[Rfam]
RNA sequence: ACCGCUGAGCCAUCUCUCCAGCCCCCAUAACAUAUUUAAAAGAAAAAAAUUCCCAGGGGCUGGAGAGAUGGCUCAGUGGU
Numbered sequence: 001a002c003c004g005c006u007g008a009g010c011c012a013u014c015u016c017u018c019c020a021g022c023c024c025c026c027a028u029a030a031c032a033u034a035u036u037u038a039a040a041a042g043a044a045a046a047a048a049a050u051u052c053c054c055a056g057g058g059g060c061u062g063g064a065g066a067g068a069u070g071g072c073u074c075a076g077u078g079g080u
Stems, first nucleotide, its partner, number of pairs: 002079023
The record is an 80-nucleotide RNA from Nannospalax galili, which matches "mir-3473 microRNA precursor family" in Rfam. Taxonomically the source falls in Nannospalax (Eukaryota, Bilateria, Boreoeutheria, Muroidea).